[Rfam]
RNA: Lysine riboswitch aptamer
Organism: Halobacillus sp. BBL2006
RNA sequence: AGUAAGGAUAGAGGUGCAAAUACAUGAGUACGCAUGUUGAGGAGAAUGAGAUCCGACGACACAUGGGGAAAGGGGAUUUUGCCGAAGCGGAAGGAAUCUCAUAUUCCGGACGUUGGUUCUGUUGCUUAAGAGGUGCAGGACUGUCAUAUAGGAGACUAUAUGGAGGGCUAUCUUACGC
Number, nucleotide and partner (000 for none) at each position: 001a000002g000003u000004a000005a000006g173007g172008a171009u170010a169011g168012a000013g000014g000015u000016g082017c081018a080019a079020a077021u076022a000023c074024a000025u000026g000027a000028g000029u000030a000031c067032g000033c065034a064035u063036g062037u061038u000039g000040a000041g000042g000043a000044g000045a000046a000047u000048g000049a000050g000051a000052u000053c000054c000055g000056a000057c000058g000059a000060c000061a037062c036063a035064u034065g033066g000067g031068g000069a000070a000071a000072g000073g000074g023075g000076a021077u020078u000079u019080u018081g017082c016083c000084g000085a000086a114087g113088c112089g111090g000091a000092a000093g107094g106095a105096a104097u103098c000099u000100c000101a000102u000103a097104u096105u095106c094107c093108g000109g000110a000111c089112g088113u087114u086115g142116g141117u140118u139119c138120u137121g136122u135123u000124g000125c132126u000127u000128a000129a000130g000131a000132g125133g000134u000135g122136c121137a120138g119139g118140a117141c116142u115143g000144u163145c162146a161147u160148a159149u158150a157151g000152g000153a000154g000155a000156c000157u150158a149159u148160a147161u146162g145163g144164a000165g000166g000167g000168c011169u010170a009171u008172c007173u006174u000175a000176c000177g000178c000